Record summary:
Purine riboswitch aptamer: a 100-nucleotide RNA sequence from Terribacillus saccharophilus. It scores 79 bits against the family's covariance model. Lineage of the source: Bacteria > Bacillati > Bacillota > Bacilli > Terribacillus.
[Rfam]
RNA sequence: UGUGCUUUAUAGAUCGUACCUCAUAUAUUUCCGGAAAUACGGUCCGGAAGUCUCUACCUGCUACCGUAAAUGGCGGACUAUGAGGGAAGAUGGACUGCAU
Numbered sequence: 001u002g003u004g005c006u007u008u009a010u011a012g013a014u015c016g017u018a019c020c021u022c023a024u025a026u027a028u029u030u031c032c033g034g035a036a037a038u039a040c041g042g043u044c045c046g047g048a049a050g051u052c053u054c055u056a057c058c059u060g061c062u063a064c065c066g067u068a069a070a071u072g073g074c075g076g077a078c079u080a081u082g083a084g085g086g087a088a089g090a091u092g093g094a095c096u097g098c099a100u
Base pairs, nucleotide, nucleotide: 019085020084021083022082023081024080025079029049030048031047032046033045034044035043058076059075060074061073062072063071
Dot-bracket structure: ..................(((((((...(((((((.......)))))))........((((((.......))))))..)))))))...............